[Rfam]
RNA sequence: GCAUCACUAUGAGGGUUAGGUCUGAAAGCUCCCAAAAAGAGCGGACCUAGCCUGAGGCUGCAAAGC
Numbered sequence: 001g002c003a004u005c006a007c008u009a010u011g012a013g014g015g016u017u018a019g020g021u022c023u024g025a026a027a028g029c030u031c032c033c034a035a036a037a038a039g040a041g042c043g044g045a046c047c048u049a050g051c052c053u054g055a056g057g058c059u060g061c062a063a064a065g066c
Stems, first nucleotide, its partner, number of pairs: 001066002004063001014052010029041003
RNA: Selenocysteine insertion sequence 1